Rfam assigns this 60-nucleotide RNA sequence from Sphingomonas sp. Leaf231 to the family "terC RNA".
It is annotated as a cis-regulatory element.
Pairs were carried over by alignment from the consensus structure, which is taken from published work.
The family has 129 seed sequences and 1,112 matches in Rfam 15.1.
[Rfam]
RNA sequence: AGAGCGGGCCGGGCCCCUCUGACAAUUUCCCUCGGGUGAUUGUGAUGUCGGACCGCAUCG
Number, nucleotide and partner (000 for none) at each position: 001a000002g000003a000004g000005c000006g054007g053008g000009c051010c050011g049012g048013g000014c000015c000016c000017c000018u000019c000020u000021g000022a043023c042024a041025a040026u039027u038028u000029c036030c000031c000032u000033c000034g000035g000036g029037u000038g027039a026040u025041u024042g023043u022044g000045a000046u000047g000048u012049c011050g010051g009052a000053c007054c006055g000056c000057a000058u000059c000060g000